[Rfam]
RNA sequence: GCCGAGACUAUAGAGUCACAUCUGGGCACUGCCUGUUGUCCUGGUGUGCUGGAGUCCUCGGACAGUAAACACUAAUCUAUUCACUGGCUGUGCCCACUCCUGUCUCAGUCAGUCACCAGGUUAGUGACAGGA
Number, nucleotide and partner (000 for none) at each position: 001g000002c061003c060004g059005a058006g057007a055008c054009u053010a000011u000012a000013g000014a050015g049016u000017c048018a047019c046020a045021u044022c043023u000024g000025g040026g039027c038028a037029c000030u000031g000032c000033c000034u000035g000036u000037u028038g027039u026040c025041c000042u000043g022044g021045u020046g019047u018048g017049c015050u014051g000052g000053a009054g008055u007056c000057c006058u005059c004060g003061g002062a000063c000064a000065g000066u000067a000068a000069a000070c000071a000072c124073u123074a122075a121076u120077c119078u118079a000080u000081u000082c000083a113084c112085u111086g110087g109088c000089u107090g106091u000092g104093c000094c102095c000096a000097c000098u000099c000100c000101u000102g094103u000104c092105u000106c090107a089108g000109u087110c086111a085112g084113u083114c000115a000116c000117c000118a078119g077120g076121u075122u074123a073124g072125u000126g000127a000128c000129a000130g000131g000132a000

Shown here is a 132-nucleotide RNA from Manacus vitellinus, a member of the family "Small nucleolar RNA SNORA3/SNORA45 family". The family has 6 seed sequences and 2,080 matches in Rfam 15.1. The members of this family belong to the H/ACA class of snoRNAs which are thought to guide the sites of modification of uridines to pseudouridines. This family includes mouse snoMBI-28 and human homologues ACA3 (SNORA3) and ACA3-2 (SNORA45). Both ACA3 and ACA3-2 share the same host gene. The organism belongs to Manacus, within Eukaryota. The family's RNA type in Rfam is H/ACA-box small nucleolar RNA. It scores 91 bits against the family's covariance model. The family is grouped with related families in Rfam's "SNORA3 clan".